[Rfam]
Small nucleolar RNA SNORA58: a 135-nucleotide sequence from Buteo japonicus. ACA52 is a member of the H/ACA class of snoRNA that guide the sites of modification of uridines to pseudouridines. Lineage of the source: Eukaryota > Archelosauria > Theropoda > Aves > Buteo. The family's RNA type in Rfam is H/ACA-box small nucleolar RNA. The match comes from Rfam's covariance-model search (81 bits).
RNA sequence: UUGCAUACCAGUAGACCUUAUCUGGUUCUUCUAAUAGCCAGAUGAGGGGGAUGGUGCAUGCUACAAAAACCUGAGAUUGCUGUAGGCUAUGAUCAGCCUGAUGUGGCUGAUUGAACUGCAAUGCUCCCAACAUAU
Numbered sequence: 001u002u003g004c005a006u007a008c009c010a011g012u013a014g015a016c017c018u019u020a021u022c023u024g025g026u027u028c029u030u031c032u033a034a035u036a037g038c039c040a041g042a043u044g045a046g047g048g049g050g051a052u053g054g055u056g057c058a059u060g061c062u063a064c065a066a067a068a069a070c071c072u073g074a075g076a077u078u079g080c081u082g083u084a085g086g087c088u089a090u091g092a093u094c095a096g097c098c099u100g101a102u103g104u105g106g107c108u109g110a111u112u113g114a115a116c117u118g119c120a121a122u123g124c125u126c127c128c129a130a131c132a133u134a135u
Base pairs, nucleotide, nucleotide: 003061004060005059006058008056016047017046018045019044020043021042022041023040024039073128075126076125078123081120082119083118093110094109095108096107097106